Shown here is a 60-nucleotide sequence, a member of the family "Transposase-1 RNA".
By type it is a small RNA.
RNA sequence: CGUUAAGAGGUCACCUCUGUCGUUACCUGCUUUAUGCAGAUACGAGAAUGUGGCUGUCAA
Numbered sequence: 001c002g003u004u005a006a007g008a009g010g011u012c013a014c015c016u017c018u019g020u021c022g023u024u025a026c027c028u029g030c031u032u033u034a035u036g037c038a039g040a041u042a043c044g045a046g047a048a049u050g051u052g053g054c055u056g057u058c059a060a
Base pairs, nucleotide, nucleotide: 009055010054011053012052013051014050020045021044022043023042027039028038029037